[Rfam]
RNA sequence: ACCAUCCACUAGGGGUGCUCCGUUCGGGGCUGAGAGAAGGCGUAGCGCCUUCAACCCUUGGAACCUGACCUGGGUAAUGCCAGCGAAGGGAAGUGGGUGGGUCGGGGU
Numbered sequence: 001a002c003c004a005u006c007c008a009c010u011a012g013g014g015g016u017g018c019u020c021c022g023u024u025c026g027g028g029g030c031u032g033a034g035a036g037a038a039g040g041c042g043u044a045g046c047g048c049c050u051u052c053a054a055c056c057c058u059u060g061g062a063a064c065c066u067g068a069c070c071u072g073g074g075u076a077a078u079g080c081c082a083g084c085g086a087a088g089g090g091a092a093g094u095g096g097g098u099g100g101g102u103c104g105g106g107g108u
Stems, first nucleotide, its partner, number of pairs: 006096005011058004017030005037051005064089003070083004

The record is a 108-nucleotide sequence from Calditerricola satsumensis, which matches "TPP riboswitch aptamer (THI element)" in Rfam.
Pairs were carried over by alignment from the consensus structure, which is taken from published work.
Rfam describes the family as follows. Vitamin B(1) in its active form thiamin pyrophosphate (TPP) is an essential coenzyme that is synthesised by coupling of pyrimidine and thiazole moieties in bacteria.